[Rfam]
RNA sequence: UAUCAAUCAUAUAACUGGCGGAAGUGGGGCUAACCACGAGGGAGUAUGGUUGUUGAAAUGUCGACCGCCUGGGCAUAUUUU
Numbered sequence: 001u002a003u004c005a006a007u008c009a010u011a012u013a014a015c016u017g018g019c020g021g022a023a024g025u026g027g028g029g030c031u032a033a034c035c036a037c038g039a040g041g042g043a044g045u046a047u048g049g050u051u052g053u054u055g056a057a058a059u060g061u062c063g064a065c066c067g068c069c070u071g072g073g074c075a076u077a078u079u080u081u
Stems, first nucleotide, its partner, number of pairs: 004052009015041002017069005024037004058076005

This 81-nucleotide sequence from Iocasia frigidifontis belongs to the Rfam family "ZMP/ZTP riboswitch aptamer (pfl RNA motif)". For this family Rfam cites "Recognition of the bacterial alarmone ZMP through long-distance association of two RNA subdomains" (Jones and Ferre-D'Amare, Nat Struct Mol Biol, 2015). Pairs were carried over by alignment from the consensus structure, which is taken from published work.